A member of the RNA family "Small nucleolar RNA SNORA61" from Mus spicilegus, 129 nucleotides long. Rfam describes the family as follows. ACA61 is a member of the H/ACA class of snoRNA that guide the sites of modification of uridines to pseudouridines. NCBI's taxonomy places the organism under Eukaryota, Mammalia, Glires, Muridae, Mus. Rfam classes the family as an H/ACA-box small nucleolar RNA. Its family is annotated with RNA processing and nucleolus in the Gene Ontology. It scores 121 bits against the family's covariance model.
RNA sequence: ACCCUCCGGUUUCCUUUCCCAUCGGGUCUCAACACUGGUCUAGGUGGUCGUAAAGGAGGAAGAACACACUGAAGCUGGCCUAACAGUGAUGCAGUCUGCUGUAGAGCAUCAGGCCAGAUCCAAACAUCU
Numbered sequence: 001a002c003c004c005u006c007c008g009g010u011u012u013c014c015u016u017u018c019c020c021a022u023c024g025g026g027u028c029u030c031a032a033c034a035c036u037g038g039u040c041u042a043g044g045u046g047g048u049c050g051u052a053a054a055g056g057a058g059g060a061a062g063a064a065c066a067c068a069c070u071g072a073a074g075c076u077g078g079c080c081u082a083a084c085a086g087u088g089a090u091g092c093a094g095u096c097u098g099c100u101g102u103a104g105a106g107c108a109u110c111a112g113g114c115c116a117g118a119u120c121c122a123a124a125c126a127u128c129u
Stems, first nucleotide, its partner, number of pairs: 003059005019047005025040004075117007090108003
Dot-bracket structure: ..(((((...........(((((.((((........))))..))))).......)))))...............(((((((........(((.............)))..)))))))............